[Rfam]
RNA sequence: AUUGCAUUUUCUUCAAACUGACUCAUUGAUGUGUUCUUGUAUAAUGCUAAGAACACUCUUUGACUUUGGUUUGAGGUAGUAUAUGCAGU
Numbered sequence: 001a002u003u004g005c006a007u008u009u010u011c012u013u014c015a016a017a018c019u020g021a022c023u024c025a026u027u028g029a030u031g032u033g034u035u036c037u038u039g040u041a042u043a044a045u046g047c048u049a050a051g052a053a054c055a056c057u058c059u060u061u062g063a064c065u066u067u068g069g070u071u072u073g074a075g076g077u078a079g080u081a082u083a084u085g086c087a088g089u
Stems, first nucleotide, its partner, number of pairs: 001089007009081001011076008020066002023063003028058002031056009